[Rfam]
RNA sequence: ACAACAACAAUAACAAGCAGACCCACAAUAAGAACAAGACGUACCGGCUCUAGCAAAAUAAAUACAAGAAGGCAGAGGCGUAGCUAACUGAUUCUUUUGGAGAGGAAAUGCCAAAUGGGGUUUUGCCCCACGACCAGGCCGAGAACAACAAAAACUGCCUAAGCAGUGCCUGAACUGGUUGGAUCGAUGAUCGAUGGCAAGUCAGCGACCAAAGAAAUCCGUUUGCUCUUUGCUCCCAACGUAGGAGCGAUUCCCGGACGCGAAAGCCGAAGGGAACGGGUGAUCAAACAAAAACAACACGCCCGAAAUACUAAUAACAACAAAGCACGCGACAUCAUUUAAGGGGGGAGCUUCGGCUCCCCCUAGUGCUUUCUGGCUUCGGCCGUUGUUUUGACACCU
Numbered sequence: 001a002c003a004a005c006a007a008c009a010a011u012a013a014c015a016a017g018c019a020g021a022c023c024c025a026c027a028a029u030a031a032g033a034a035c036a037a038g039a040c041g042u043a044c045c046g047g048c049u050c051u052a053g054c055a056a057a058a059u060a061a062a063u064a065c066a067a068g069a070a071g072g073c074a075g076a077g078g079c080g081u082a083g084c085u086a087a088c089u090g091a092u093u094c095u096u097u098u099g100g101a102g103a104g105g106a107a108a109u110g111c112c113a114a115a116u117g118g119g120g121u122u123u124u125g126c127c128c129c130a131c132g133a134c135c136a137g138g139c140c141g142a143g144a145a146c147a148a149c150a151a152a153a154a155c156u157g158c159c160u161a162a163g164c165a166g167u168g169c170c171u172g173a174a175c176u177g178g179u180u181g182g183a184u185c186g187a188u189g190a191u192c193g194a195u196g197g198c199a200a201g202u203c204a205g206c207g208a209c210c211a212a213a214g215a216a217a218u219c220c221g222u223u224u225g226c227u228c229u230u231u232g233c234u235c236c237c238a239a240c241g242u243a244g245g246a247g248c249g250a251u252u253c254c255c256g257g258a259c260g261c262g263a264a265a266g267c268c269g270a271a272g273g274g275a276a277c278g279g280g281u282g283a284u285c286a287a288a289c290a291a292a293a294a295c296a297a298c299a300c301g302c303c304c305g306a307a308a309u310a311c312u313a314a315u316a317a318c319a320a321c322a323a324a325g326c327a328c329g330c331g332a333c334a335u336c337a338u339u340u341a342a343g344g345g346g347g348g349a350g351c352u353u354c355g356g357c358u359c360c361c362c363c364u365a366g367u368g369c370u371u372u373c374u375g376g377c378u379u380c381g382g383c384c385g386u387u388g389u390u391u392u393g394a395c396a397c398c399u
Stems, first nucleotide, its partner, number of pairs: 045080002048077004095214005109207003131181007155166004232248005273380003277376001278304004323371004344363008
Rfam assigns this 399-nucleotide sequence from Stutzerimonas stutzeri to the family "Pseudomonas sRNA CrcZ". Gene Ontology term of the family: carbon catabolite repression of transcription. The family's consensus secondary structure was predicted with WAR. The literature on the family includes a 2006 paper in Nucleic Acids Res by Livny et al., "Identification of 17 Pseudomonas aeruginosa sRNAs and prediction of sRNA-encoding genes in 10 diverse pathogens using the bioinformatic tool sRNAPredict2". Lineage of the source: Bacteria > Pseudomonadota > Gammaproteobacteria > Pseudomonadales > Stutzerimonas.